The record is a 107-nucleotide RNA from Desulforamulus aquiferis, which matches "SAM riboswitch aptamer (S box leader)" in Rfam. The family's consensus secondary structure is taken from published work.
RNA sequence: CUCUUAUCCAGAGUGGUGGAGGGAAAGGCCCUAUGAAACCCGGCAACCGGUCAGCUUAAGCUGACAAGGUGCUAAUUCCUUCAGGACAUAGUCCUGGCAGAUGAGAG
Numbered sequence: 001c002u003c004u005u006a007u008c009c010a011g012a013g014u015g016g017u018g019g020a021g022g023g024a025a026a027g028g029c030c031c032u033a034u035g036a037a038a039c040c041c042g043g044c045a046a047c048c049g050g051u052c053a054g055c056u057u058a059a060g061c062u063g064a065c066a067a068g069g070u071g072c073u074a075a076u077u078c079c080u081u082c083a084g085g086a087c088a089u090a091g092u093c094c095u096g097g098c099a100g101a102u103g104a105g106a107g
Stems, first nucleotide, its partner, number of pairs: 001107008013041001015040003021031003025081004042073004047069002050065004077099001082096006